Source information
This 53-nucleotide RNA sequence from Pannonibacter phragmitetus belongs to the Rfam family "sul1 RNA".

RNA sequence: GCAGGACUCGUUUGAUCGAGUGGCUAUCCCGAGCGCCGAUCCCUCGGGUUAAC
Numbered sequence: 001g002c003a004g005g006a007c008u009c010g011u012u013u014g015a016u017c018g019a020g021u022g023g024c025u026a027u028c029c030c031g032a033g034c035g036c037c038g039a040u041c042c043c044u045c046g047g048g049u050u051a052a053c
Base pairs, nucleotide, nucleotide: 006021007020008019009018010017028048029047030046031045032044033043